[Rfam]
RNA: T-box leader
RNA sequence: ACGAUUGCGAUGAGAAAGAAGAGUACGCUUUUCCAUGCAUUACCAGAGAGUCUGCGGUUGCUGCGAGCAGACAGUGCAGAUUGGCGGAAUGGACUUUCGAGCAUUCAAACCGAACAGCCGCACCCGGCUCAGUAGGCUUUGACGUUUCUCAUACGUUACAAUGAGACCCCUUCGCGUCAUGCACGCCGAGGGUAAUGAGUGAUUUUUCCACUGAGGAAAAAUAACCAGGGUGGCAACGCGGUCCAUCGUCCCUGUU
Numbered sequence: 001a002c003g004a005u006u007g008c009g010a011u012g013a014g015a016a017a018g019a020a021g022a023g024u025a026c027g028c029u030u031u032u033c034c035a036u037g038c039a040u041u042a043c044c045a046g047a048g049a050g051u052c053u054g055c056g057g058u059u060g061c062u063g064c065g066a067g068c069a070g071a072c073a074g075u076g077c078a079g080a081u082u083g084g085c086g087g088a089a090u091g092g093a094c095u096u097u098c099g100a101g102c103a104u105u106c107a108a109a110c111c112g113a114a115c116a117g118c119c120g121c122a123c124c125c126g127g128c129u130c131a132g133u134a135g136g137c138u139u140u141g142a143c144g145u146u147u148c149u150c151a152u153a154c155g156u157u158a159c160a161a162u163g164a165g166a167c168c169c170c171u172u173c174g175c176g177u178c179a180u181g182c183a184c185g186c187c188g189a190g191g192g193u194a195a196u197g198a199g200u201g202a203u204u205u206u207u208c209c210a211c212u213g214a215g216g217a218a219a220a221a222u223a224a225c226c227a228g229g230g231u232g233g234c235a236a237c238g239c240g241g242u243c244c245a246u247c248g249u250c251c252c253u254g255u256u
Base pairs, nucleotide, nucleotide: 007102008101015097016096017095018094026086027085028084029083039075040074041073050072051071052070053069054068055067105141107139108138110136111135143155144154145153202222203221204220205219206218207217208216227253228252229251230250238249239248240247241246
Dot-bracket structure: ......((......((((.......((((.........(((........((((((...........))))))))).......)))).......))))...))..(.((.((.......................)).)).).(((.......)))..............................................(((((((.......)))))))....((((.......((((....))))))))...